[Rfam]
A member of the RNA family "Molybdenum/Tungsten riboswitch aptamer (Moco RNA motif)" from bacterium E08(2017), 137 nucleotides long. Pairs were carried over by alignment from the consensus structure, which is taken from published work. Rfam 15.1 lists 1,248 matches to the family in 836 species.
RNA sequence: AACAAUGUAAAUCUCCGAGCCUGCCUGCCUAAAGAAAUUAUCUAUGGCGGGUUGGCCGGUUAGGGUGCGAAAGGAAACGAUCGCGCCUCCCGGCGAGUGACCGCUCGUCAUUGGAAAGGAGACUCACAUGAUAAUGC
Numbered sequence: 001a002a003c004a005a006u007g008u009a010a011a012u013c014u015c016c017g018a019g020c021c022u023g024c025c026u027g028c029c030u031a032a033a034g035a036a037a038u039u040a041u042c043u044a045u046g047g048c049g050g051g052u053u054g055g056c057c058g059g060u061u062a063g064g065g066u067g068c069g070a071a072a073g074g075a076a077a078c079g080a081u082c083g084c085g086c087c088u089c090c091c092g093g094c095g096a097g098u099g100a101c102c103g104c105u106c107g108u109c110a111u112u113g114g115a116a117a118g119g120a121g122a123c124u125c126a127c128a129u130g131a132u133a134a135u136g137c
Base pairs, nucleotide, nucleotide: 006128012122013121014120015119016118019056020055021054023052024051025050026049027048028047029046033043034042035041063088064087065086066085067084068083069082070081073078089114090113